[Rfam]
RNA: mir-184 microRNA precursor family
Organism: Pomacea canaliculata
RNA sequence: UUUUUCACGUUUCCUUGUCACUCCUCCGCCCCGUCUGUGAACAAGCACUGGACGGAGAACUGAUAAGGGCUUGUGGGUGA
Numbered sequence: 001u002u003u004u005u006c007a008c009g010u011u012u013c014c015u016u017g018u019c020a021c022u023c024c025u026c027c028g029c030c031c032c033g034u035c036u037g038u039g040a041a042c043a044a045g046c047a048c049u050g051g052a053c054g055g056a057g058a059a060c061u062g063a064u065a066a067g068g069g070c071u072u073g074u075g076g077g078u079g080a
Base pairs, nucleotide, nucleotide: 012069013068014067015066016065017064018063019062020061022059024057025056026055027054030051031050